About this RNA: A member of the RNA family "Metazoan signal recognition particle RNA" from Haemaphysalis longicornis, 298 nucleotides long. From the family's description: The signal recognition particle (SRP) is a universally conserved ribonucleoprotein. It is involved in the co-translational targeting of proteins to membranes. The eukaryotic SRP consists of a 300-nucleotide 7S RNA and six proteins: SRPs 72, 68, 54, 19, 14, and 9. Archaeal SRP consists of a 7S RNA and homologues of the eukaryotic SRP19 and SRP54 proteins. The match comes from Rfam's covariance-model search (243 bits).

RNA sequence: GCUGGGGGUCGUGGCGAGCCCCUGUAAUCCAGCUUCUGGGAGGCCGGGUCUAGAGGACGAGCUGAGGCCGGGGGUCCUGUGCCGCGGUUGGCCAUGUUGACGGGACGUCCGCGCUAAGCGGGGCGUCGAUAUGGUGACCCCGGGGGAGCUCGGGGCGGCCAGGUCGCCUAAGGAGGAGCGAACCGGCCCAGGGCGGAGACGCAGCAGGCAAAAGCUCCCGCGUCUCGCAGUAGCGGGAUAGCGCCCCGGAAUGGGCGCCGCGGUGCAGCCCGGAUGUCAGUCUCGGACCUAGAUCUUU
Numbered sequence: 001g002c003u004g005g006g007g008g009u010c011g012u013g014g015c016g017a018g019c020c021c022c023u024g025u026a027a028u029c030c031a032g033c034u035u036c037u038g039g040g041a042g043g044c045c046g047g048g049u050c051u052a053g054a055g056g057a058c059g060a061g062c063u064g065a066g067g068c069c070g071g072g073g074g075u076c077c078u079g080u081g082c083c084g085c086g087g088u089u090g091g092c093c094a095u096g097u098u099g100a101c102g103g104g105a106c107g108u109c110c111g112c113g114c115u116a117a118g119c120g121g122g123g124c125g126u127c128g129a130u131a132u133g134g135u136g137a138c139c140c141c142g143g144g145g146g147a148g149c150u151c152g153g154g155g156c157g158g159c160c161a162g163g164u165c166g167c168c169u170a171a172g173g174a175g176g177a178g179c180g181a182a183c184c185g186g187c188c189c190a191g192g193g194c195g196g197a198g199a200c201g202c203a204g205c206a207g208g209c210a211a212a213a214g215c216u217c218c219c220g221c222g223u224c225u226c227g228c229a230g231u232a233g234c235g236g237g238a239u240a241g242c243g244c245c246c247c248g249g250a251a252u253g254g255g256c257g258c259c260g261c262g263g264u265g266c267a268g269c270c271c272g273g274a275u276g277u278c279a280g281u282c283u284c285g286g287a288c289c290u291a292g293a294u295c296u297u298u
Base pairs, nucleotide, nucleotide: 001044002043003042004023005022006021007020008019009018028041029040030039046296047295048294049293050292051291052290053289058285059284060283061282063280064277066275068273069272070271071270072269077268078267079266080265081264082263083262084261085260086259087258088257092254093253094252095251097249101248102247103246104245106243107242108241109237110236112235113234114233115232116231118228119227120226121225122224123223124222125221126220127166128165129164130163132161133160134159135158138155139154140153141152142151143150144149167173168172175218176217177216178215179214186209187208188207193202194201195200
Annotation
Gene Ontology terms of the family: signal recognition particle, endoplasmic reticulum targeting and SRP-dependent cotranslational protein targeting to membrane, signal sequence recognition.